[Rfam]
RNA sequence: GCUCUUUAGCGGUUUGGACGAACUUCGUCUAGUCGGGUGAUUAGCCAGACUCUAACUUAUUGAACACA
Numbered sequence: 001g002c003u004c005u006u007u008a009g010c011g012g013u014u015u016g017g018a019c020g021a022a023c024u025u026c027g028u029c030u031a032g033u034c035g036g037g038u039g040a041u042u043a044g045c046c047a048g049a050c051u052c053u054a055a056c057u058u059a060u061u062g063a064a065c066a067c068a
Stems, first nucleotide, its partner, number of pairs: 005064005031051004036046003